Rfam assigns this 165-nucleotide RNA sequence from Mycoplasmopsis californica to the family "Lysine riboswitch aptamer". Lineage of the source: Bacteria > Mycoplasmatota > Mycoplasmoidales > Metamycoplasmataceae > Mycoplasmopsis.
[Rfam]
RNA sequence: UAAAACUAUAGAGGAGCUUUCUAUAUAAGUAAAUAGCGGAGCAGGCGUGCAAAGAUUCUAUUGAAAGGAUAAGAUAGCCGAAUUAGUUUUCUAGGCAUAGAAAACUAAUGGCAACAAUUCAUAACAGUUUGUUGCUCUUUGGUAAACAUUGGUGCUAUAGUCAUU
Numbered sequence: 001u002a003a004a005a006c007u008a009u010a011g012a013g014g015a016g017c018u019u020u021c022u023a024u025a026u027a028a029g030u031a032a033a034u035a036g037c038g039g040a041g042c043a044g045g046c047g048u049g050c051a052a053a054g055a056u057u058c059u060a061u062u063g064a065a066a067g068g069a070u071a072a073g074a075u076a077g078c079c080g081a082a083u084u085a086g087u088u089u090u091c092u093a094g095g096c097a098u099a100g101a102a103a104a105c106u107a108a109u110g111g112c113a114a115c116a117a118u119u120c121a122u123a124a125c126a127g128u129u130u131g132u133u134g135c136u137c138u139u140u141g142g143u144a145a146a147c148a149u150u151g152g153u154g155c156u157a158u159a160g161u162c163a164u165u
Stems, first nucleotide, its partner, number of pairs: 006160006016078003020074002022071003032062005039056001082109012110136008119127001